The family of this 294-nucleotide RNA sequence from Macrophomina phaseolina is "5' ureB small RNA". The base pairs follow the family's consensus structure, which was predicted with mfold. For this family Rfam cites "Helicobacter pylori 5'ureB-sRNA, a cis-encoded antisense small RNA, negatively regulates ureAB expression by transcription termination" (Wen et al., J Bacteriol, 2013).

RNA sequence: CUCAUACGCCUGUUGCGGACAGAUGAAAUGGAUAUGGGUGUCAAAUCCUCCAGCAGUAAUGAUCUUGCCUUCGCCAGCGAUGACAUCCGUACAAGCACCGAUGACCAAGUUGGGAUGAACUCCCUUCAUGAUAUCCGGAUUACCAGCUUUGCCAAUGCCGACGAUAUGGCCAUUCUUGAUGCCAAUGUCCGCCUUGUAGAUGCCAGACCAGUCGAUGAUGAGGGCAUUGGUUAUGACCGUGUCCAGAGAUUCGCUAUCCGAACGUCCACCAGCCUGGCCCAUUCCCUCGCGCAG
Numbered sequence: 001c002u003c004a005u006a007c008g009c010c011u012g013u014u015g016c017g018g019a020c021a022g023a024u025g026a027a028a029u030g031g032a033u034a035u036g037g038g039u040g041u042c043a044a045a046u047c048c049u050c051c052a053g054c055a056g057u058a059a060u061g062a063u064c065u066u067g068c069c070u071u072c073g074c075c076a077g078c079g080a081u082g083a084c085a086u087c088c089g090u091a092c093a094a095g096c097a098c099c100g101a102u103g104a105c106c107a108a109g110u111u112g113g114g115a116u117g118a119a120c121u122c123c124c125u126u127c128a129u130g131a132u133a134u135c136c137g138g139a140u141u142a143c144c145a146g147c148u149u150u151g152c153c154a155a156u157g158c159c160g161a162c163g164a165u166a167u168g169g170c171c172a173u174u175c176u177u178g179a180u181g182c183c184a185a186u187g188u189c190c191g192c193c194u195u196g197u198a199g200a201u202g203c204c205a206g207a208c209c210a211g212u213c214g215a216u217g218a219u220g221a222g223g224g225c226a227u228u229g230g231u232u233a234u235g236a237c238c239g240u241g242u243c244c245a246g247a248g249a250u251u252c253g254c255u256a257u258c259c260g261a262a263c264g265u266c267c268a269c270c271a272g273c274c275u276g277g278c279c280c281a282u283u284c285c286c287u288c289g290c291g292c293a294g
Base pairs, nucleotide, nucleotide: 001294002293005291007289008288011163012162013161014160015159017075018074021071022070029052030051031050036047037046039044056068057067058066077152080149082147089143090142091141095140098138099137100135101134102133106130107129108126109125112122113121169278170277171276172275176272177271178270180268181267183264191225192224193223194222195221206213228260229259230258235252236251239250240249
Dot-bracket structure: ((..(.((..(((((.((..((......(((....((.(....).))..)))...(((.......))).))..)).(..(.(......(((...(..(((((...((((..((.......))..))..))..))).)).))))...).)..)......))))).....((((...(((.((.(.......(((((..........(......).......)))))..(((....((..((........)))).....)))...)..)).)))..)))).........)).).))